A member of the RNA family "mir-166 microRNA precursor family" from Gossypium schwendimanii, 155 nucleotides long. A reference for the family is Reinhart et al. (2002), "MicroRNAs in plants", Genes Dev. Taxonomically the source falls in Gossypium (Eukaryota, Streptophyta, Malvales, Malvoideae). The base pairs follow the family's consensus structure, which was predicted with PFOLD. Gene Ontology terms of the family: RISC complex and miRNA-mediated post-transcriptional gene silencing. The match comes from Rfam's covariance-model search (62 bits). This family represents the plant microRNA (miRNA) precursor mir-166.
RNA sequence: UUUGAGGGGAACGUUGUCUGACCCGAGGAUGCUUCUAUGAAUCCAUUUUUCCUUGCAUUUGAUGAUUCUUCUUAUGGAUCUGAUUGUUGUUCUAAUGGAGUAAGGGAUUGAGGUUUGUGCCAGUGCCGUCGGACCAGGCUUCAUUCCCCCCCAAU
Numbered sequence: 001u002u003u004g005a006g007g008g009g010a011a012c013g014u015u016g017u018c019u020g021a022c023c024c025g026a027g028g029a030u031g032c033u034u035c036u037a038u039g040a041a042u043c044c045a046u047u048u049u050u051c052c053u054u055g056c057a058u059u060u061g062a063u064g065a066u067u068c069u070u071c072u073u074a075u076g077g078a079u080c081u082g083a084u085u086g087u088u089g090u091u092c093u094a095a096u097g098g099a100g101u102a103a104g105g106g107a108u109u110g111a112g113g114u115u116u117g118u119g120c121c122a123g124u125g126c127c128g129u130c131g132g133a134c135c136a137g138g139c140u141u142c143a144u145u146c147c148c149c150c151c152c153a154a155u
Stems, first nucleotide, its partner, number of pairs: 002154003006150001007148005013142001016139005024131003